This 113-nucleotide sequence from Oryza sativa belongs to the Rfam family "MIR2863 microRNA precursor family". The source organism's lineage runs through Eukaryota, Viridiplantae, Tracheophyta, Poaceae and Oryza. The sequence is in the family's curated seed alignment.

[Rfam]
RNA sequence: GGGUAUUUCUUGACCCACUUUAGUUCAACUAAAAUGAACUAAGUUUCACUUUUAGAGAGUCUAAAGUGAAAUUUAGUUCAUUUAGUAGGACUAGAAUGGGCCAAAGAAUACCC
Number, nucleotide and partner (000 for none) at each position: 001g113002g112003g111004u110005a109006u108007u107008u106009c000010u104011u103012g102013a000014c100015c099016c098017a097018c000019u095020u094021u093022a092023g091024u090025u089026c088027a000028a086029c085030u084031a083032a082033a081034a000035u080036g079037a078038a077039c076040u075041a074042a073043g072044u071045u070046u069047c068048a067049c000050u066051u065052u064053u063054a062055g061056a000057g000058a000059g000060u000061c055062u054063a053064a052065a051066g050067u048068g047069a046070a045071a044072u043073u042074u041075a040076g039077u038078u037079c036080a035081u033082u032083u031084a030085g029086u028087a000088g026089g025090a024091c023092u022093a021094g020095a019096a000097u017098g016099g015100g014101c000102c012103a011104a010105a000106g008107a007108a006109u005110a004111c003112c002113c001
Clan: MIR2863 microRNA precursor clan.